[Rfam]
RNA: SAH (S-adenosyl-L-homocysteine) riboswitch aptamer
Organism: Advenella mimigardefordensis
RNA sequence: UGUUCUGAGGGGCGUUGCGACAUGACUUAACCGUCAUGCCAGGCUCAGAAUACGAUCAGAUAACGAACCGCGCUCAUCAUAU
Numbered sequence: 001u002g003u004u005c006u007g008a009g010g011g012g013c014g015u016u017g018c019g020a021c022a023u024g025a026c027u028u029a030a031c032c033g034u035c036a037u038g039c040c041a042g043g044c045u046c047a048g049a050a051u052a053c054g055a056u057c058a059g060a061u062a063a064c065g066a067a068c069c070g071c072g073c074u075c076a077u078c079a080u081a082u
Stems, first nucleotide, its partner, number of pairs: 002051007021038006
Dot-bracket structure: .(((((((............((((((......))))))......)))))))...............................